Small nucleolar RNA Z159/U59: an 88-nucleotide RNA sequence from Papaver somniferum.
Pairs were carried over by alignment from the consensus structure, which was predicted with PFOLD.
The family has 10 seed sequences and 1,401 matches in Rfam 15.1.
Rfam classes the family as a C/D-box small nucleolar RNA.
Rfam links the family to the GO terms RNA processing and nucleolus.
The family is grouped with related families in Rfam's "SNORD59 clan".
The match comes from Rfam's covariance-model search (68 bits).

[Rfam]
RNA sequence: GUCUCUGAUGAUGAUGAAAACAAACUUUCGUUCUUCCGAGGUUUUAUUAAUCUAUGCGGAAAAUAAUGGAGACCUGAACUGAAGAGAC
Numbered sequence: 001g002u003c004u005c006u007g008a009u010g011a012u013g014a015u016g017a018a019a020a021c022a023a024a025c026u027u028u029c030g031u032u033c034u035u036c037c038g039a040g041g042u043u044u045u046a047u048u049a050a051u052c053u054a055u056g057c058g059g060a061a062a063a064u065a066a067u068g069g070a071g072a073c074c075u076g077a078a079c080u081g082a083a084g085a086g087a088c
Stems, first nucleotide, its partner, number of pairs: 003086004
Dot-bracket structure: ..((((............................................................................))))..